[Rfam]
RNA sequence: GCCGAGCUUGGUAACGCAAGCUUGUGACCCAGGUGGGGUAUUUGGGGUUAUAGAACAUCUGGUCCGGCUUAAGCGGUCGGAUUCAUUGUGGCAAAUCACCGGCCUUGGCUCCUUUCCAAGCAAGGAGUGAUCCACGGGAUUUGAGCGAAAGCUGUGAGUCUCGUGGGAUCCUAGGGAGAAUGGUAAUGCGUGAGGCUGGUUUCACAGAGCAGCGAUAACUAUCCGUUCUUUGCAGUGCUAGGAUAGCAAGCUGGUGCCUCCUGAAUCCAAUAGGUGGCUCCCUGGGUUGACCAUAAUUGAACUAUCCA
Numbered sequence: 001g002c003c004g005a006g007c008u009u010g011g012u013a014a015c016g017c018a019a020g021c022u023u024g025u026g027a028c029c030c031a032g033g034u035g036g037g038g039u040a041u042u043u044g045g046g047g048u049u050a051u052a053g054a055a056c057a058u059c060u061g062g063u064c065c066g067g068c069u070u071a072a073g074c075g076g077u078c079g080g081a082u083u084c085a086u087u088g089u090g091g092c093a094a095a096u097c098a099c100c101g102g103c104c105u106u107g108g109c110u111c112c113u114u115u116c117c118a119a120g121c122a123a124g125g126a127g128u129g130a131u132c133c134a135c136g137g138g139a140u141u142u143g144a145g146c147g148a149a150a151g152c153u154g155u156g157a158g159u160c161u162c163g164u165g166g167g168a169u170c171c172u173a174g175g176g177a178g179a180a181u182g183g184u185a186a187u188g189c190g191u192g193a194g195g196c197u198g199g200u201u202u203c204a205c206a207g208a209g210c211a212g213c214g215a216u217a218a219c220u221a222u223c224c225g226u227u228c229u230u231u232g233c234a235g236u237g238c239u240a241g242g243a244u245a246g247c248a249a250g251c252u253g254g255u256g257c258c259u260c261c262u263g264a265a266u267c268c269a270a271u272a273g274g275u276g277g278c279u280c281c282c283u284g285g286g287u288u289g290a291c292c293a294u295a296a297u298u299g300a301a302c303u304a305u306c307c308a
Stems, first nucleotide, its partner, number of pairs: 003038001004023007028037003050305004056299002058296001061292004066287001068286004073281001075279004079268007088260001090258002094255001099254005105248001108247002111242002114240001117237002120233009129170004133165011144153003171176001178223002182219001189214003196207003
A member of the RNA family "Plant signal recognition particle RNA" from Gossypium mustelinum, 308 nucleotides long. Taxonomically the source falls in Gossypium (Eukaryota, Spermatophyta, Magnoliopsida, Gunneridae). By type it is a non-coding RNA gene.